mir-190 microRNA precursor family: an 81-nucleotide sequence from Denticeps clupeoides. On this family, see Kloosterman et al., Nucleic Acids Res 2006: "Cloning and expression of new microRNAs from zebrafish". Its family is annotated with RISC complex and miRNA-mediated post-transcriptional gene silencing in the Gene Ontology. The base pairs follow the family's consensus structure, which was predicted with RNAalifold. Lineage of the source: Eukaryota > Craniata > Vertebrata > Teleostomi > Denticeps.
RNA sequence: GGUGCUGUGUGAUAUGUUUGAUAUUCGGUUGUACUGCUGCUGAUCAAGUCAACUAAAUAUCAGACAUAUUCCUACAGCGCC
Numbered sequence: 001g002g003u004g005c006u007g008u009g010u011g012a013u014a015u016g017u018u019u020g021a022u023a024u025u026c027g028g029u030u031g032u033a034c035u036g037c038u039g040c041u042g043a044u045c046a047a048g049u050c051a052a053c054u055a056a057a058u059a060u061c062a063g064a065c066a067u068a069u070u071c072c073u074a075c076a077g078c079g080c081c
Stems, first nucleotide, its partner, number of pairs: 005077005011070015027054005